[Rfam]
RNA sequence: CGCCCCGGCAUUGGGUAAAGAGACAUUGGUGGUGGUGGUGGUGUUCUUAUAUCAGUCAGGGGCAGGGCAGAUGGCAGUCCUUUGUUCAUCAUAGCUUGAUGCUUAGUUUGGUGGCCAAAGCUGUUUUAUGCCUAGGACACAUAA
Numbered sequence: 001c002g003c004c005c006c007g008g009c010a011u012u013g014g015g016u017a018a019a020g021a022g023a024c025a026u027u028g029g030u031g032g033u034g035g036u037g038g039u040g041g042u043g044u045u046c047u048u049a050u051a052u053c054a055g056u057c058a059g060g061g062g063c064a065g066g067g068c069a070g071a072u073g074g075c076a077g078u079c080c081u082u083u084g085u086u087c088a089u090c091a092u093a094g095c096u097u098g099a100u101g102c103u104u105a106g107u108u109u110g111g112u113g114g115c116c117a118a119a120g121c122u123g124u125u126u127u128a129u130g131c132c133u134a135g136g137a138c139a140c141a142u143a144a
Base pairs, nucleotide, nucleotide: 002063003062004061005060006059008057011055012054013053014052018048019047020046022042024040025039026038027037083139084138085137086136087135098132100130104128105127106126109123110122112120
The family of this 144-nucleotide sequence from Rattus norvegicus is "Small nucleolar RNA SNORA48". It scores 76 bits against the family's covariance model. Rfam 15.1 lists 2,109 matches to the family in 150 species.